This 164-nucleotide RNA sequence from Merops nubicus belongs to the Rfam family "U1 spliceosomal RNA". Rfam's curators write: U1 is a small nuclear RNA (snRNA) component of the spliceosome (involved in pre-mRNA splicing). A search with the family's covariance model found it, with a score of 114 bits. Its family is annotated with mRNA 5'-splice site recognition, pre-mRNA 5'-splice site binding and U1 snRNP in the Gene Ontology. Rfam 15.1 lists 40,184 matches to the family in 1,499 species. The family's RNA type in Rfam is spliceosomal small nuclear RNA. A reference for the family is Zwieb (1997), "The uRNA database", Nucleic Acids Res. The family's consensus secondary structure is taken from published work.
RNA sequence: GUUCUCUACUGGCAGGGGAGACACCAUGAUGAGGCAGGUGGGUUUCCCAGGGCGAGGCUCAUCCCCUGCACUCCGGGUGUGCUAACCCCUGCAAUUUCCUGAAACGCACGAAACUUGACUGCAUAAUUUGUGGUAGUGGGGGACUGCGUUCAUGCUCUCCCCUC
Number, nucleotide and partner (000 for none) at each position: 001g000002u000003u000004c000005u000006c000007u000008a000009c000010u000011g000012g122013c121014a120015g119016g048017g047018g046019a045020g044021a043022c000023a000024c041025c040026a039027u038028g000029a000030u000031g000032a000033g000034g000035c000036a000037g000038g027039u026040g025041g024042g000043u021044u020045u019046c018047c017048c016049a090050g089051g088052g087053c000054g086055a000056g083057g082058c081059u000060c079061a078062u077063c076064c075065c000066c000067u000068g000069c000070a000071c000072u000073c000074c000075g064076g063077g062078u061079g060080u000081g058082c057083u056084a000085a000086c054087c052088c051089c050090u049091g000092c117093a116094a115095u113096u111097u110098c000099c000100u108101g000102a000103a000104a000105c000106g000107c000108a100109c000110g097111a096112a000113a095114c000115u094116u093117g092118a000119c015120u014121g013122c012123a000124u000125a000126a000127u000128u000129u000130g000131u000132g000133g000134u000135a000136g000137u000138g163139g162140g161141g160142g159143a158144c000145u000146g155147c154148g153149u000150u000151c000152a000153u148154g147155c146156u000157c000158u143159c142160c141161c140162c139163u138164c000